[Rfam]
RNA: Pseudomonas sRNA P11
Organism: Pseudomonas guineae
RNA sequence: AAACACACAAGCUGGCACAAACCCUGCAACAGCCUAAGCAAUUAAUAAGGUACAGCCUUCAACGAUGAAAGCUGCACUUCCCGAUAGAACGGGACUUGGACAAAGGCGUCCUGCUAGGUGACUAGCGGGACGCC
Dot-bracket structure: ............(((((.......)))......................((.((.(..((......))..).)).)).(((((......)))))......))..(((((((.(((((....))))).)))))))